The family of this 260-nucleotide part of an RNA from Brasilonema sennae is "Bacterial large subunit ribosomal RNA". The source organism's lineage runs through Bacteria, Bacillati, Scytonemataceae, Bromeliae group (in: Brasilonema) and Brasilonema sennae. Gene Ontology terms of the family: structural constituent of ribosome and ribosome. A reference for the family is Cannone et al. (2002), "The comparative RNA web (CRW) site: an online database of comparative sequence and structure information for ribosomal, intron, and other RNAs", BMC Bioinformatics. The family's consensus secondary structure is taken from published work.
[Rfam]
RNA sequence: AGAGUAUUGAGAGGAGCCCUCCUUAGUACGAGAGGACCGGGAGGGACGCACCGCUGGUGUACCAGUUAUCGUGCCAACGGUAAACGCUGGGUAGCCAUGUGCGGAGCGGAUAACCGCUGAAAGCAUCUAAGUGGGAAGCCCACCUCAAGAUGAGUACUCUCAUGGCAUUAGCCAGUAAGGUCACAGGCAGAACACCUGUUAAUAGGUGGGAGGUGUACACGCAGUAAUGUGUUCAGCCGACCCAUGCUAAUAGACCGAGG
Numbered sequence: 001a002g003a004g005u006a007u008u009g010a011g012a013g014g015a016g017c018c019c020u021c022c023u024u025a026g027u028a029c030g031a032g033a034g035g036a037c038c039g040g041g042a043g044g045g046a047c048g049c050a051c052c053g054c055u056g057g058u059g060u061a062c063c064a065g066u067u068a069u070c071g072u073g074c075c076a077a078c079g080g081u082a083a084a085c086g087c088u089g090g091g092u093a094g095c096c097a098u099g100u101g102c103g104g105a106g107c108g109g110a111u112a113a114c115c116g117c118u119g120a121a122a123g124c125a126u127c128u129a130a131g132u133g134g135g136a137a138g139c140c141c142a143c144c145u146c147a148a149g150a151u152g153a154g155u156a157c158u159c160u161c162a163u164g165g166c167a168u169u170a171g172c173c174a175g176u177a178a179g180g181u182c183a184c185a186g187g188c189a190g191a192a193c194a195c196c197u198g199u200u201a202a203u204a205g206g207u208g209g210g211a212g213g214u215g216u217a218c219a220c221g222c223a224g225u226a227a228u229g230u231g232u233u234c235a236g237c238c239g240a241c242c243c244a245u246g247c248u249a250a251u252a253g254a255c256c257g258a259g260g
Stems, first nucleotide, its partner, number of pairs: 001160008011146004017045007047103005055097003062090005067082006108140002114134005163174003176258001179256004183199005203249003206245005212238002219232005
Dot-bracket structure: ((((((((..((((..(((((((...............))))))).(((((...(((....(((((((((((....))))))...)))))....))).)))))....((....(((((...........)))))....))..))))......))))))))..(((......))).(..(((((((((.......)))))...((((((((.((.....(((((....)))))....))..))))).)))...)))).)..